[Rfam]
RNA sequence: CCCGACAGAAGAGGUGCGAUGCACAGGUAACUAACGCUAGGUAGCCGUUCUACCGCUAAGCGUUAACUAGGGGUGCAUCGCCGAGAUAAUCAACUGGUACGGCGAGCUGAUUAUCGGCUAGGCAGGCUGAAUCCUGUCGGCUGUCAUCCAAACUUUGGGUGGAGCGCUUCAAGCUAA
Numbered sequence: 001c002c003c004g005a006c007a008g009a010a011g012a013g014g015u016g017c018g019a020u021g022c023a024c025a026g027g028u029a030a031c032u033a034a035c036g037c038u039a040g041g042u043a044g045c046c047g048u049u050c051u052a053c054c055g056c057u058a059a060g061c062g063u064u065a066a067c068u069a070g071g072g073g074u075g076c077a078u079c080g081c082c083g084a085g086a087u088a089a090u091c092a093a094c095u096g097g098u099a100c101g102g103c104g105a106g107c108u109g110a111u112u113a114u115c116g117g118c119u120a121g122g123c124a125g126g127c128u129g130a131a132u133c134c135u136g137u138c139g140g141c142u143g144u145c146a147u148c149c150a151a152a153c154u155u156u157g158g159g160u161g162g163a164g165c166g167c168u169u170c171a172a173g174c175u176a177a
Stems, first nucleotide, its partner, number of pairs: 008170004016081009032065006085115008094106002116142004121138006144162007
Notes
Shown here is a 177-nucleotide sequence from Idiomarina xiamenensis, a member of the family "Lysine riboswitch aptamer". The source organism's lineage runs through Bacteria, Gammaproteobacteria, Alteromonadales, Idiomarinaceae and Idiomarina xiamenensis. The family's consensus secondary structure is taken from published work.